[Rfam]
RNA sequence: AGGAAGGCAUCCGAUUGGAGCCUUACCUGAAGUGAUCCAAAGCAGUAUGCACUACAAAAAAAGCUCUGAUCCGAAACGGACAGGGACUUGGGA
Numbered sequence: 001a002g003g004a005a006g007g008c009a010u011c012c013g014a015u016u017g018g019a020g021c022c023u024u025a026c027c028u029g030a031a032g033u034g035a036u037c038c039a040a041a042g043c044a045g046u047a048u049g050c051a052c053u054a055c056a057a058a059a060a061a062a063g064c065u066c067u068g069a070u071c072c073g074a075a076a077c078g079g080a081c082a083g084g085g086a087c088u089u090g091g092g093a
Stems, first nucleotide, its partner, number of pairs: 001028003004024005010019002061089003064085005070080003
RNA: pan motif
Organism: Paenibacillus solanacearum